Shown here is a 106-nucleotide RNA sequence from Clostridium acetobutylicum, a member of the family "SAM riboswitch aptamer (S box leader)". The SAM riboswitch is found upstream of a number of genes which code for proteins involved in methionine or cysteine biosynthesis in Gram-positive bacteria. Its Rfam clan is "SAM clan". Lineage of the source: Bacteria > Bacillota > Clostridia > Clostridiaceae > Clostridium acetobutylicum.
Nucleotides: 106
Stems, first nucleotide, its partner, number of pairs: 002105007013041001015040003021031003025083001027081002042075004047071002050067004079098001084095004
Number, partner (000 for none) and nucleotide at each position: 001000a002105u003104c004103u005102u006101a007100u008099c009000a010000a011000g012000a013041g014000u015040g016039g017038u018000g019000g020000a021031g022030g023029g024000a025083c026000u027081g028080g029023c030022c031021c032000u033000u034000u035000g036000a037000a038017a039016c040015c041013c042075g043074g044073c045072a046000a047071c048070c049000a050067g051066u052065a053064u054000a055000u056000u057000u058000u059000u060000u061000a062000a063000u064053a065052u066051a067050u068000g069000u070048g071047g072045u073044g074043c075042u076000a077000a078000a079098u080028c081027c082000u083025g084095c085094a086093g087092c088000a089000a090000a091000c092087g093086c094085u095084g096000a097000u098079a099008g100007a101006u102005g103004a104003g105002a106000a